RNA: TPP riboswitch aptamer (THI element)
Organism: Glaciecola sp. KUL10
RNA sequence: AUAUAAACCAAGGGGUGCCAUUGCAUAAAUGCAAUGGCUGAGAUUCGAAAGAGAACCCUUAUUUACCUGAUCCGGUUAGUACCGGCGUAGGAAUGGUUGGCGAAAUCAUC
Dot-bracket structure: .....(((((((((.(((((((((......))))))))......((....)))..))))......((((..((((......))))..))))..)))))............
Numbered sequence: 001a002u003a004u005a006a007a008c009c010a011a012g013g014g015g016u017g018c019c020a021u022u023g024c025a026u027a028a029a030u031g032c033a034a035u036g037g038c039u040g041a042g043a044u045u046c047g048a049a050a051g052a053g054a055a056c057c058c059u060u061a062u063u064u065a066c067c068u069g070a071u072c073c074g075g076u077u078a079g080u081a082c083c084g085g086c087g088u089a090g091g092a093a094u095g096g097u098u099g100g101c102g103a104a105a106u107c108a109u110c
Stems, first nucleotide, its partner, number of pairs: 006098005011059004016053001017038008045052002066091004072085004